[Rfam]
RNA: msiK RNA
Organism: Streptomyces avermitilis
RNA sequence: UGGACACCACCUUUACUCGGAUCGUCCGGCACGUUCCUGCCGGUGAAGGGGGCCCCU
Numbered sequence: 001u002g003g004a005c006a007c008c009a010c011c012u013u014u015a016c017u018c019g020g021a022u023c024g025u026c027c028g029g030c031a032c033g034u035u036c037c038u039g040c041c042g043g044u045g046a047a048g049g050g051g052g053c054c055c056c057u
Stems, first nucleotide, its partner, number of pairs: 010049006026043006